[Rfam]
RNA sequence: GUGACCGUGCAGUCGUGUGUGGCGUCGGGAUCGAGCAGGGCGUUGUCGCCGAAGUGGCCGCCGUCCGCGAGGAUGCCGAUGCCGACCUCCCCGCCGUACUCCCCCGCCGAGGUCUGGCUCAGCCGGCCAUGGGCGAUCAGGUGGAUCCGGUCCGCGGGGCUGCCGCGCUCGGCGAGGACCUCGCCCGCGGUGAAGUCCCGCUGCGUGCAGCGCCCGGCGAGGGCGGUCAGGACGUCCGUGUCGUCGAACCCGCGCAGAAGGGCCAGUUCGCCGAGUUCUUCCGGGAUGACGCGCACCGUGGCGCCCUCCUGGACGAACUCGAUGCGUCCGUCGCCGAGGGUGUGCCGCAGCCGUCGGUUGACGCGGUAGGUACUGCCUUGUGCUUCGACCCAGGGCAGCAUCCGCAGCAGCCAGCGGGAGGUGAUCUCCUGCAUCUGCGGCGCGGACUUGGUGAUCGUGGCGAGGUUGCGGGCGGCGGCGGUGCUCAGGGACUGCUG
Numbered sequence: 001g002u003g004a005c006c007g008u009g010c011a012g013u014c015g016u017g018u019g020u021g022g023c024g025u026c027g028g029g030a031u032c033g034a035g036c037a038g039g040g041c042g043u044u045g046u047c048g049c050c051g052a053a054g055u056g057g058c059c060g061c062c063g064u065c066c067g068c069g070a071g072g073a074u075g076c077c078g079a080u081g082c083c084g085a086c087c088u089c090c091c092c093g094c095c096g097u098a099c100u101c102c103c104c105c106g107c108c109g110a111g112g113u114c115u116g117g118c119u120c121a122g123c124c125g126g127c128c129a130u131g132g133g134c135g136a137u138c139a140g141g142u143g144g145a146u147c148c149g150g151u152c153c154g155c156g157g158g159g160c161u162g163c164c165g166c167g168c169u170c171g172g173c174g175a176g177g178a179c180c181u182c183g184c185c186c187g188c189g190g191u192g193a194a195g196u197c198c199c200g201c202u203g204c205g206u207g208c209a210g211c212g213c214c215c216g217g218c219g220a221g222g223g224c225g226g227u228c229a230g231g232a233c234g235u236c237c238g239u240g241u242c243g244u245c246g247a248a249c250c251c252g253c254g255c256a257g258a259a260g261g262g263c264c265a266g267u268u269c270g271c272c273g274a275g276u277u278c279u280u281c282c283g284g285g286a287u288g289a290c291g292c293g294c295a296c297c298g299u300g301g302c303g304c305c306c307u308c309c310u311g312g313a314c315g316a317a318c319u320c321g322a323u324g325c326g327u328c329c330g331u332c333g334c335c336g337a338g339g340g341u342g343u344g345c346c347g348c349a350g351c352c353g354u355c356g357g358u359u360g361a362c363g364c365g366g367u368a369g370g371u372a373c374u375g376c377c378u379u380g381u382g383c384u385u386c387g388a389c390c391c392a393g394g395g396c397a398g399c400a401u402c403c404g405c406a407g408c409a410g411c412c413a414g415c416g417g418g419a420g421g422u423g424a425u426c427u428c429c430u431g432c433a434u435c436u437g438c439g440g441c442g443c444g445g446a447c448u449u450g451g452u453g454a455u456c457g458u459g460g461c462g463a464g465g466u467u468g469c470g471g472g473c474g475g476c477g478g479c480g481g482u483g484c485u486c487a488g489g490g491a492c493u494g495c496u497g
Stems, first nucleotide, its partner, number of pairs: 007389002011385002014382003019327001021325001025322005031316002036312001038310003042306001045305001047303005054233002060227005065109001067107002075103001078101002083096002086093001118221003123216001126213002130209001131206001133204003138200001140198001143197002148192002153189006161177001164174003234296002237293001240290006249283001252280001254278001256277002260271001262269001329342004353377001355375003361371002391431005397425001399423003403418001405416001407415001437476002440473001443470002446467001447465003451461002486497003
A member of the RNA family "Saccharopolyspora sRNA 350" from Streptomyces sp. SAT1, 497 nucleotides long. NCBI's taxonomy places the organism under Bacteria, Bacillati, Actinomycetes, Streptomycetaceae, Streptomyces. Gene Ontology term of the family: regulation of secondary metabolite biosynthetic process. Rfam classes the family as an antisense RNA. The base pairs follow the family's consensus structure, which was predicted with RNAfold.